This 152-nucleotide sequence from Solicola gregarius belongs to the Rfam family "c-di-AMP riboswitch aptamer (ydaO/yuaA leader)". A search with the family's covariance model found it, with a score of 59 bits. A reference for the family is Barrick et al. (2004), "New RNA motifs suggest an expanded scope for riboswitches in bacterial genetic control", Proc Natl Acad Sci U S A.
RNA sequence: UCGGACCUACUGACGUACCGCGGCAGGAGCGGGGGACCCACCUACCGCUUGGAUCUACCAGCCAGGCUCGGGGUGUAGUCGCUCGCAGAGCGACGGGGCACCUUUUCCGCCCUAACCCGACAGCUCACCUCGCAGGCAUGGAAAGGGACCCC
Numbered sequence: 001u002c003g004g005a006c007c008u009a010c011u012g013a014c015g016u017a018c019c020g021c022g023g024c025a026g027g028a029g030c031g032g033g034g035g036a037c038c039c040a041c042c043u044a045c046c047g048c049u050u051g052g053a054u055c056u057a058c059c060a061g062c063c064a065g066g067c068u069c070g071g072g073g074u075g076u077a078g079u080c081g082c083u084c085g086c087a088g089a090g091c092g093a094c095g096g097g098g099c100a101c102c103u104u105u106u107c108c109g110c111c112c113u114a115a116c117c118c119g120a121c122a123g124c125u126c127a128c129c130u131c132g133c134a135g136g137c138a139u140g141g142a143a144a145g146g147g148a149c150c151c152c
Stems, first nucleotide, its partner, number of pairs: 001028001002026001029133006039070001071118003079093004096112004
Dot-bracket structure: ((.......................).)((((((....(..............................)(((.....((((.......))))..((((.........))))...))).........))))))...................
Rfam describes the family as follows. This family represents a conserved RNA structure found upstream of the ydaO and yuaA genes in Bacillus subtilis and related genes in other bacteria. Lineage of the source: Bacteria > Bacillati > Actinomycetota > Propionibacteriales > Solicola.